RNA sequence: GGGCAGGAUAUGUGAAGUACAUGUACCGGCGAAGCCGACACAUGUACUUCACUUCCCUUUAUUCGCGCUAUGCACUCAAUGGGAAUCCUGCUCUACGAGGUC
Dot-bracket structure: (((((((((..((((((.(((..(..(((.....)))..)..))).))))))...(((......(.((...)).).....))).))))))))).........
RNA: traJ-II RNA
Organism: Methylomonas sp. LL1